Rfam assigns this 108-nucleotide RNA from Punica granatum to the family "Small nucleolar RNA snoR109".
Its family is annotated with RNA processing and nucleolus in the Gene Ontology.
The family has 6 seed sequences and 680 matches in Rfam 15.1.
RNA sequence: CGGCUGUAGCCAGAUCGAACGGAUCAGACGAGAAGUUAACUGGCCGGUAGCCGUGAGGAAUCAGAUUUUCUCCCGUCGGCUUAUCUGCUUACCGAACUUCUCACAUUU
Dot-bracket structure: .............................((((((((....(((.((((((((.......................)))).)))).))).....))))))))......
It is annotated as an H/ACA-box small nucleolar RNA. NCBI's taxonomy places the organism under Eukaryota, Spermatophyta, Pentapetalae, Myrtales, Punica. It scores 83 bits against the family's covariance model.